[Rfam]
RNA sequence: UUCUUAUUCAGAGUGAUGGAGAUACAAAGGAUCUGUGAAGUCACGGCAACCCCUCUACGGAAGGUGCCAACCUGAGCGAAUUGUACGUUACAGUAUAUAUGUUCGAACAAUAAGAG
Numbered sequence: 001u002u003c004u005u006a007u008u009c010a011g012a013g014u015g016a017u018g019g020a021g022a023u024a025c026a027a028a029g030g031a032u033c034u035g036u037g038a039a040g041u042c043a044c045g046g047c048a049a050c051c052c053c054u055c056u057a058c059g060g061a062a063g064g065u066g067c068c069a070a071c072c073u074g075a076g077c078g079a080a081u082u083g084u085a086c087g088u089u090a091c092a093g094u095a096u097a098u099a100u101g102u103u104c105g106a107a108c109a110a111u112a113a114g115a116g
Base pairs, nucleotide, nucleotide: 001116002115003114004113005112006111007110008109013044014043015042016041017040021033022032023031030073045068046067047066048065050064051063052060053059077105078104079103080102081101
The family of this 116-nucleotide sequence from Roseburia sp. OF03-24 is "SAM riboswitch aptamer (S box leader)". A search with the family's covariance model found it, with a score of 64 bits.